[Rfam]
This 82-nucleotide sequence from Klebsiella variicola belongs to the Rfam family "sroB RNA".
The family's consensus secondary structure was predicted with LocARNA.
A reference for the family is Vogel et al. (2003), "RNomics in Escherichia coli detects new sRNA species and indicates parallel transcriptional output in bacteria", Nucleic Acids Res.
The organism belongs to Klebsiella variicola, within Bacteria.
RNA sequence: CGAUCCGGGAUGCAAAUCCCGGGAUAAUAAUAAUGAUGAAAUUCCUCUUUGACGGGCCAAUAGCAAUAUUGGCCAUUUUUUU
Dot-bracket structure: ......(((((....)))))......((....))....................((((((((....))))))))........